[Rfam]
RNA sequence: UACGAUAGCUAGGGGUGCCGAAAUGGCUGAGAGGACGUGUGUCCAACUCUUAUACCUGAUGUGGUUAGUACCACCGGAGGGAAGCUUUUAAAAUUGUAC
Numbered sequence: 001u002a003c004g005a006u007a008g009c010u011a012g013g014g015g016u017g018c019c020g021a022a023a024u025g026g027c028u029g030a031g032a033g034g035a036c037g038u039g040u041g042u043c044c045a046a047c048u049c050u051u052a053u054a055c056c057u058g059a060u061g062u063g064g065u066u067a068g069u070a071c072c073a074c075c076g077g078a079g080g081g082a083a084g085c086u087u088u089u090a091a092a093a094u095u096g097u098a099c
Base pairs, nucleotide, nucleotide: 007086008085009084010083011050012049013048014047017027018026019025020024034043035042036041055080056079057078061074062073063072064071
Source information:
Shown here is a 99-nucleotide RNA from Anaerospora hongkongensis, a member of the family "TPP riboswitch aptamer (THI element)". The family's consensus secondary structure is taken from published work. From the family's description: Vitamin B(1) in its active form thiamin pyrophosphate (TPP) is an essential coenzyme that is synthesised by coupling of pyrimidine and thiazole moieties in bacteria. The previously detected thiamin-regulatory element, thi box was extended, resulting in a new, highly conserved RNA secondary structure, the THI element, which is widely distributed in eubacteria and also occurs in some archaea.